Record summary:
The record is a 69-nucleotide sequence from Ladona fulva, which matches "mir-1175 microRNA precursor family" in Rfam. Taxonomically the source falls in Ladona (Eukaryota, Pancrustacea, Odonata, Epiprocta).
RNA sequence: AGGAUCAAGUGGAGAAGUGGUCUCUUCACUUUGAUGUAAAGUGAGAUUCAACUCCUCCAACUUAAUUCU
Numbered sequence: 001a002g003g004a005u006c007a008a009g010u011g012g013a014g015a016a017g018u019g020g021u022c023u024c025u026u027c028a029c030u031u032u033g034a035u036g037u038a039a040a041g042u043g044a045g046a047u048u049c050a051a052c053u054c055c056u057c058c059a060a061c062u063u064a065a066u067u068c069u
Stems, first nucleotide, its partner, number of pairs: 007063003010059005017053001018051001023046002026044006